The family of this 173-nucleotide RNA is "permuted transfer-messenger RNA".
On this family, see Williams, Nucleic Acids Res 2002: "The tmRNA Website: invasion by an intron".
The match comes from Rfam's covariance-model search (82 bits).
Bacterial tmRNA, also known as 10Sa RNA or SsrA, is named for its dual tRNA and mRNA-like properties. Its role is to liberate the mRNA from a stalled ribosome.
RNA sequence: GAUUAUCACCUCUAUUGUUUAGGACUGGGGUUCGACUCCCCACAUCUCCACUUCUUGGGGAUGCCAAGGUUUCGACUGAACUAUAUGUGUAUAAUUGUUGACGGAUCGAAACAACAACUGCAAACAACGUAGUUAAAUUCCGCAGAACUGCCGUAACCUCCCUGGUUGCCGCA
Numbered sequence: 001g002a003u004u005a006u007c008a009c010c011u012c013u014a015u016u017g018u019u020u021a022g023g024a025c026u027g028g029g030g031u032u033c034g035a036c037u038c039c040c041c042a043c044a045u046c047u048c049c050a051c052u053u054c055u056u057g058g059g060g061a062u063g064c065c066a067a068g069g070u071u072u073c074g075a076c077u078g079a080a081c082u083a084u085a086u087g088u089g090u091a092u093a094a095u096u097g098u099u100g101a102c103g104g105a106u107c108g109a110a111a112c113a114a115c116a117a118c119u120g121c122a123a124a125c126a127a128c129g130u131a132g133u134u135a136a137a138u139u140c141c142g143c144a145g146a147a148c149u150g151c152c153g154u155a156a157c158c159u160c161c162c163u164g165g166u167u168g169c170c171g172c173a
Stems, first nucleotide, its partner, number of pairs: 001096005017081002020078003026042005043063007
Rfam links the family to the GO term RNA catabolic process.